[Rfam]
RNA sequence: GAUCGACUCUCUGGAGACACCCGGAUGAACCGGGGGCCGAAGGUGCAACAUACGUUUUCGUAUGAAUCUCUCAGGCAAGCGGACAGAGAAGAUAUC
Numbered sequence: 001g002a003u004c005g006a007c008u009c010u011c012u013g014g015a016g017a018c019a020c021c022c023g024g025a026u027g028a029a030c031c032g033g034g035g036g037c038c039g040a041a042g043g044u045g046c047a048a049c050a051u052a053c054g055u056u057u058u059c060g061u062a063u064g065a066a067u068c069u070c071u072c073a074g075g076c077a078a079g080c081g082g083a084c085a086g087a088g089a090a091g092a093u094a095u096c
Base pairs, nucleotide, nucleotide: 008089009088010087011086012085013084020034021033022032023031036076037075038074039072040071043070045068050063051062052061053060
Glycine riboswitch aptamer: a 96-nucleotide sequence from Roseburia inulinivorans.